This 72-nucleotide RNA sequence from Branchiostoma floridae belongs to the Rfam family "mir-252 microRNA precursor family". Lineage of the source: Eukaryota > Eumetazoa > Cephalochordata > Amphioxiformes > Branchiostoma. Its family is annotated with RISC complex and miRNA-mediated post-transcriptional gene silencing in the Gene Ontology. Rfam's curators put it in the seed alignment.
[Rfam]
RNA sequence: GCCCCAUGCUAAGUACUAGUGCCGCAGGUGUCUGUUUAUUGUACCCCUGCAGACUGGUGCUUAACGUGGAAC
Numbered sequence: 001g002c003c004c005c006a007u008g009c010u011a012a013g014u015a016c017u018a019g020u021g022c023c024g025c026a027g028g029u030g031u032c033u034g035u036u037u038a039u040u041g042u043a044c045c046c047c048u049g050c051a052g053a054c055u056g057g058u059g060c061u062u063a064a065c066g067u068g069g070a071a072c
Stems, first nucleotide, its partner, number of pairs: 001072001004069004010063010024050005030044001